[Rfam]
This 163-nucleotide RNA sequence from Morella rubra belongs to the Rfam family "small nucleolar RNA snoR137". A search with the family's covariance model found it, with a score of 122 bits. The family has 4 seed sequences and 808 matches in Rfam 15.1. The source organism's lineage runs through Eukaryota, Tracheophyta, Spermatophyta, fabids and Morella.
RNA sequence: GUUGCUUCAUACUUGUGAACUCUCUCUUUGUUUCACAAAAAGUGAGAGAUGUUCAUGUUUCCGAAGCAUAGAUUAAUUGGGAUGUUAACUUCUUUGCCAGUAUUAAACAGCGCUGUGUGUGCUCUUUGUUGUUGCACUGUGCUACCUGUCUCCUGGUAUAUUC
Numbered sequence: 001g002u003u004g005c006u007u008c009a010u011a012c013u014u015g016u017g018a019a020c021u022c023u024c025u026c027u028u029u030g031u032u033u034c035a036c037a038a039a040a041a042g043u044g045a046g047a048g049a050u051g052u053u054c055a056u057g058u059u060u061c062c063g064a065a066g067c068a069u070a071g072a073u074u075a076a077u078u079g080g081g082a083u084g085u086u087a088a089c090u091u092c093u094u095u096g097c098c099a100g101u102a103u104u105a106a107a108c109a110g111c112g113c114u115g116u117g118u119g120u121g122c123u124c125u126u127u128g129u130u131g132u133u134g135c136a137c138u139g140u141g142c143u144a145c146c147u148g149u150c151u152c153c154u155g156g157u158a159u160a161u162u163c
Base pairs, nucleotide, nucleotide: 003068004067005066006065007064008063016055017054018053019052020051021049022048023047024046025045096157097156098155099154100153102151109143110142111141113139115137116136117135
A reference for the family is Chen and Wu (2009), "Mining small RNA sequencing data: a new approach to identify small nucleolar RNAs in Arabidopsis", Nucleic Acids Res.